Shown here is a 138-nucleotide sequence from Mustela putorius, a member of the family "Small nucleolar RNA SNORA43".
About the family: ACA43 is a member of the H/ACA class of snoRNA that guide the sites of modification of uridines to pseudouridines.
It scores 83 bits against the family's covariance model.
The family's RNA type in Rfam is H/ACA-box small nucleolar RNA.
The base pairs follow the family's consensus structure, which was predicted with RNAfold.
RNA sequence: GGUGCAGUGGGGACCUGCCUGUGCCACAGAUUCAGCGGCUGUGCUCCACUUGGGACGUGGAGGCAAAGAGGAAGUGGCUGUUUUUAUGCUCAGCACUCAGAAUAGUGAGCACUAAGAACGGUUUAUAGCCUAACACAC
Dot-bracket structure: ..(((..(.(................(((....................))).....).)..)))..........(((.....((...((.....((((......)))).....))...))......)))........